Small nucleolar RNA snoR104: a 118-nucleotide sequence from Triticum aestivum.
A search with the family's covariance model found it, with a score of 83 bits.
Rfam links the family to the GO terms RNA processing and nucleolus.
The source organism's lineage runs through Eukaryota, Streptophyta, Streptophytina, Pooideae and Triticum.
Rfam 15.1 lists 612 matches to the family in 228 species.
On this family, see Marker et al., Curr Biol 2002: "Experimental RNomics: identification of 140 candidates for small non-messenger RNAs in the plant Arabidopsis thaliana".
The family's RNA type in Rfam is H/ACA-box small nucleolar RNA.
[Rfam]
RNA sequence: AGGUAGCAUCCAAAAGAUAAGAUGCCUACCCGAUACGGUAUUCCUAGAUUAACAUUACAAUUUCCUGCUCGUGGUAUUGUAAGCAGGUUCUGCAAGUCUCAAAUGAUAAGACACCUGA
Numbered sequence: 001a002g003g004u005a006g007c008a009u010c011c012a013a014a015a016g017a018u019a020a021g022a023u024g025c026c027u028a029c030c031c032g033a034u035a036c037g038g039u040a041u042u043c044c045u046a047g048a049u050u051a052a053c054a055u056u057a058c059a060a061u062u063u064c065c066u067g068c069u070c071g072u073g074g075u076a077u078u079g080u081a082a083g084c085a086g087g088u089u090c091u092g093c094a095a096g097u098c099u100c101a102a103a104u105g106a107u108a109a110g111a112c113a114c115c116u117g118a
Stems, first nucleotide, its partner, number of pairs: 002030002005027001006025005056111001067097003071093004076088003